RNA sequence: AUGGAGCUUUGUUGGCGAAGAUCCACCCAUGGCUCUUAAAGAAGUAUGGAGGAGUGUGAGGGGUGAUGACCCUCUCACACACUCCUCCACCUCCAAACAGUUUGCUUAAGCUUAGCCAUUGGUUCCUCUAAUCAGUAAUCACCAAGGUUGUACUAUAUAUGGAGAAGCAUAAUUCCCUAUGAGUUGCAUGAAGCAGAGAAGCUUUGGCUACAGCAUGGCAAACCGGCAAGUCACAAAAAAGGCAAUGGACUCUCUCAUUAAGUGUCCU
Numbered sequence: 001a002u003g004g005a006g007c008u009u010u011g012u013u014g015g016c017g018a019a020g021a022u023c024c025a026c027c028c029a030u031g032g033c034u035c036u037u038a039a040a041g042a043a044g045u046a047u048g049g050a051g052g053a054g055u056g057u058g059a060g061g062g063g064u065g066a067u068g069a070c071c072c073u074c075u076c077a078c079a080c081a082c083u084c085c086u087c088c089a090c091c092u093c094c095a096a097a098c099a100g101u102u103u104g105c106u107u108a109a110g111c112u113u114a115g116c117c118a119u120u121g122g123u124u125c126c127u128c129u130a131a132u133c134a135g136u137a138a139u140c141a142c143c144a145a146g147g148u149u150g151u152a153c154u155a156u157a158u159a160u161g162g163a164g165a166a167g168c169a170u171a172a173u174u175c176c177c178u179a180u181g182a183g184u185u186g187c188a189u190g191a192a193g194c195a196g197a198g199a200a201g202c203u204u205u206g207g208c209u210a211c212a213g214c215a216u217g218g219c220a221a222a223c224c225g226g227c228a229a230g231u232c233a234c235a236a237a238a239a240a241g242g243c244a245a246u247g248g249a250c251u252c253u254c255u256c257a258u259u260a261a262g263u264g265u266c267c268u
Base pairs, nucleotide, nucleotide: 060088061087062086100223101222102221103220104219105218117213248266249265250264252262
The record is a 268-nucleotide RNA from Abrus precatorius, which matches "Early nodulin 40" in Rfam.
The family's consensus secondary structure is taken from published work.
The literature on the family includes a 2007 paper in Nucleic Acids Res by Gultyaev and Roussis, "Identification of conserved secondary structures and expansion segments in enod40 RNAs reveals new enod40 homologues in plants".
Rfam classes the family as a non-coding RNA gene.
Rfam links the family to the GO term nodulation.